RNA sequence: UGGGCGGGUCGCCAGCCGCGGGGCUGGCUGAGCACAGUAGGGUGCCGGGAUCGCGAGGCUACCGGGAGCGGCUGGGCCGCCGGCGGCGCGCCCCUCUGCCCUCCCGGGUGCCACGCCGGUCAGAUCCGUCGGCCCACCAACGCCCUCCUUCCUCUCAGCAUCCAUUUGGCUGGACUGCAGUCAGUGGACAUGACCGAUCCACCAAGGGCGCCGCCGCCGGCGCUCGCAAGCCGCAGGUCUUAAAGAAGAAAGCCCGUUCCCACACCACCCGGAGCAAGAAGGUGGCUCAGACCAAGAAGGUGACCCCGACCAAGAAGGCGGCCCAGACCAAGAAGGUGACCCAGACCAAGGAGGUGGCCCAGACCAAGAAGGUG
Numbered sequence: 001u002g003g004g005c006g007g008g009u010c011g012c013c014a015g016c017c018g019c020g021g022g023g024c025u026g027g028c029u030g031a032g033c034a035c036a037g038u039a040g041g042g043u044g045c046c047g048g049g050a051u052c053g054c055g056a057g058g059c060u061a062c063c064g065g066g067a068g069c070g071g072c073u074g075g076g077c078c079g080c081c082g083g084c085g086g087c088g089c090g091c092c093c094c095u096c097u098g099c100c101c102u103c104c105c106g107g108g109u110g111c112c113a114c115g116c117c118g119g120u121c122a123g124a125u126c127c128g129u130c131g132g133c134c135c136a137c138c139a140a141c142g143c144c145c146u147c148c149u150u151c152c153u154c155u156c157a158g159c160a161u162c163c164a165u166u167u168g169g170c171u172g173g174a175c176u177g178c179a180g181u182c183a184g185u186g187g188a189c190a191u192g193a194c195c196g197a198u199c200c201a202c203c204a205a206g207g208g209c210g211c212c213g214c215c216g217c218c219g220g221c222g223c224u225c226g227c228a229a230g231c232c233g234c235a236g237g238u239c240u241u242a243a244a245g246a247a248g249a250a251a252g253c254c255c256g257u258u259c260c261c262a263c264a265c266c267a268c269c270c271g272g273a274g275c276a277a278g279a280a281g282g283u284g285g286c287u288c289a290g291a292c293c294a295a296g297a298a299g300g301u302g303a304c305c306c307c308g309a310c311c312a313a314g315a316a317g318g319c320g321g322c323c324c325a326g327a328c329c330a331a332g333a334a335g336g337u338g339a340c341c342c343a344g345a346c347c348a349a350g351g352a353g354g355u356g357g358c359c360c361a362g363a364c365c366a367a368g369a370a371g372g373u374g
Stems, first nucleotide, its partner, number of pairs: 021105003026100003040093004044054002047051001062083004068077002145356001147354005167190002170187003206225008263274001265272001
Record summary:
Rfam assigns this 374-nucleotide sequence from Cavia porcellus to the family "Bag-1 internal ribosome entry site (IRES)". Rfam links the family to the GO term ribosome binding. A reference for the family is Coldwell et al. (2001), "The p36 isoform of BAG-1 is translated by internal ribosome entry following heat shock", Oncogene. Rfam 15.1 lists 248 matches to the family in 165 species. From the family's description: This family represents the bag-1 internal ribosome entry site (IRES). When expressed the BAG-1 protein is known to enhance the anti-apoptotic properties of Bcl-2. The base pairs follow the family's consensus structure, which was predicted with PFOLD.